[Rfam]
RNA sequence: GAAGCCCGCCGGACCGCCGCUGGUGCAAGCUGGGAAACCAGGCACUGGAGGAACGUCCGGACUGCACAGGGCGGCGUAGCAGCUAACGGCUGUCCACCGUGAGGUGAGGAUCAGAGCAACAGAGACGAGUCCGAGUGGGCAUCAAGCCCGCUCGGGGUGAAACGGGCAAUCUCUACGCGCAGCAACACCAAGUAGGCCAGCGUUGACGUGGCUCCGCGGAGCUGGCGGGUAGGUGGCAUCGAGCCGGGCGGGCGACCCCCGGCCCAGAGUAAUGGCGGUCACGCCCGGAUGUCCGUAAGGGCGUUCGGGUGCACAGAAUCCGGCGUACAGGCGGGCUUCACUU
Numbered sequence: 001g002a003a004g005c006c007c008g009c010c011g012g013a014c015c016g017c018c019g020c021u022g023g024u025g026c027a028a029g030c031u032g033g034g035a036a037a038c039c040a041g042g043c044a045c046u047g048g049a050g051g052a053a054c055g056u057c058c059g060g061a062c063u064g065c066a067c068a069g070g071g072c073g074g075c076g077u078a079g080c081a082g083c084u085a086a087c088g089g090c091u092g093u094c095c096a097c098c099g100u101g102a103g104g105u106g107a108g109g110a111u112c113a114g115a116g117c118a119a120c121a122g123a124g125a126c127g128a129g130u131c132c133g134a135g136u137g138g139g140c141a142u143c144a145a146g147c148c149c150g151c152u153c154g155g156g157g158u159g160a161a162a163c164g165g166g167c168a169a170u171c172u173c174u175a176c177g178c179g180c181a182g183c184a185a186c187a188c189c190a191a192g193u194a195g196g197c198c199a200g201c202g203u204u205g206a207c208g209u210g211g212c213u214c215c216g217c218g219g220a221g222c223u224g225g226c227g228g229g230u231a232g233g234u235g236g237c238a239u240c241g242a243g244c245c246g247g248g249c250g251g252g253c254g255a256c257c258c259c260c261g262g263c264c265c266a267g268a269g270u271a272a273u274g275g276c277g278g279u280c281a282c283g284c285c286c287g288g289a290u291g292u293c294c295g296u297a298a299g300g301g302c303g304u305u306c307g308g309g310u311g312c313a314c315a316g317a318a319u320c321c322g323g324c325g326u327a328c329a330g331g332c333g334g335g336c337u338u339c340a341c342u343u
Stems, first nucleotide, its partner, number of pairs: 001339010011328001012280007020048007053326003057323005062182004069214004074178005079093005094108001095106004109173002114171002116167002131156002133153008186235004196226006207218004243263006250257002
Dot-bracket structure: ((((((((((((((((((.(((((((...............)))))))....[[[.[[[[[((((...[[[[.((((((((((.....)))))(((((....)))).)((...((((.............((((((((((.....)))))))).)).........))..)))))))))))))...((((......((((((.....((((]]]]))))..)))))).....)))).......((((((.((....))))))))..........)))))))......................................]]]]]]]].).))))))))))....